[Rfam]
c-di-GMP-I-GGC riboswitch aptamer: an 84-nucleotide sequence from Fictibacillus aquaticus. Lineage of the source: Bacteria > Bacillati > Caryophanales > Fictibacillaceae > Fictibacillus. For this family Rfam cites "Bioinformatic analysis of riboswitch structures uncovers variant classes with altered ligand specificity" (Weinberg et al., Proc Natl Acad Sci U S A, 2017).
RNA sequence: UCAGAAAAGGGCAAACAUGUUGAAAAGCAUGGACGCAAAAUCACAGGUCUAAGGUGUGUGGCUAAGACGGCUGGAUUACCUGGA
Numbered sequence: 001u002c003a004g005a006a007a008a009g010g011g012c013a014a015a016c017a018u019g020u021u022g023a024a025a026a027g028c029a030u031g032g033a034c035g036c037a038a039a040a041u042c043a044c045a046g047g048u049c050u051a052a053g054g055u056g057u058g059u060g061g062c063u064a065a066g067a068c069g070g071c072u073g074g075a076u077u078a079c080c081u082g083g084a
Stems, first nucleotide, its partner, number of pairs: 001084001003081002011036002016031006034070001039077004044073003047068003